The family of this 268-nucleotide RNA sequence is "Early nodulin 40". The family's RNA type in Rfam is non-coding RNA gene. The sequence is in the family's curated seed alignment. Its family is annotated with nodulation in the Gene Ontology.

RNA sequence: AUGGAGCUUUGUUGGCAAACAUCCAUCCAUGGUUCUUGAAGAAGCAUGGAGAUAAAGGGGUGUGAGAGGGUCCUCACCACUCACACUCCUCCACUUAAAACAGUUUGUUUUGGCUUAGCUUUGGCUUCUCUAAUCAACAAGGGAUGUGUUCUAACAUUCUCUCUUGAGUGGCAGAAGCAGAUAUGCAUUCUCCAAAGGAGGAGAGGCUUUGGCUACAGCCUGGCAAACCGGCAAGUCACGAAAAGGCAAUGGACUCCAUUGGGGUCUC
Dot-bracket structure: .............................................................(............................)...........((((((...........((...............................................................................................))....)))))).......................(((((.....)))))..